[Rfam]
RNA sequence: AUACCAAAAGUGUUUUUUUGUGGGAAGGUUUUUUAAUAACCUUUACCAACUUAGGGUUUUUGGGAGAGUAAAAAAGGCCAUGCUCCACAGUGGGCUAUACCACUUAAUGUAGUUCACUACUAUUUUGUGGCCUACAUU
Numbered sequence: 001a002u003a004c005c006a007a008a009a010g011u012g013u014u015u016u017u018u019u020g021u022g023g024g025a026a027g028g029u030u031u032u033u034u035a036a037u038a039a040c041c042u043u044u045a046c047c048a049a050c051u052u053a054g055g056g057u058u059u060u061u062g063g064g065a066g067a068g069u070a071a072a073a074a075a076g077g078c079c080a081u082g083c084u085c086c087a088c089a090g091u092g093g094g095c096u097a098u099a100c101c102a103c104u105u106a107a108u109g110u111a112g113u114u115c116a117c118u119a120c121u122a123u124u125u126u127g128u129g130g131c132c133u134a135c136a137u138u
Base pairs, nucleotide, nucleotide: 004063005062006061007060008059012058014056015055016054017053020050023047024046026044027041028040029039030038075133076132078130079129080128081127082126089118090117091116092115093114094113095112096111097110098109099108
Dot-bracket structure: ...(((((...(.((((..(..((.(((((.......))))..).))..)..)))).))))))...........((.(((((......(((((((((((........))))))))))).......))))).)).....